A member of the RNA family "Streptomyces RNA 3202" from Streptomyces phaeofaciens, 93 nucleotides long. The pairing is the family consensus, mapped onto this sequence. Rfam's curators write: Identified by deep sequencing of transcriptome at the end of exponential growth phase. Appears smaller on northern blot than sequencing transcript. It is annotated as a small RNA. It scores 68 bits against the family's covariance model.
[Rfam]
RNA sequence: CCACGUCCCGUCGCACAUCCCCCCCGGCGCCGGGACCUUCCCCGAGUCGGGCUUCGGCGCCCCUCCCCCUGGGCGCCGGGGCCCGGCUCGCUC
Numbered sequence: 001c002c003a004c005g006u007c008c009c010g011u012c013g014c015a016c017a018u019c020c021c022c023c024c025c026g027g028c029g030c031c032g033g034g035a036c037c038u039u040c041c042c043c044g045a046g047u048c049g050g051g052c053u054u055c056g057g058c059g060c061c062c063c064u065c066c067c068c069c070u071g072g073g074c075g076c077c078g079g080g081g082c083c084c085g086g087c088u089c090g091c092u093c
Stems, first nucleotide, its partner, number of pairs: 005036006012029003044089010055078008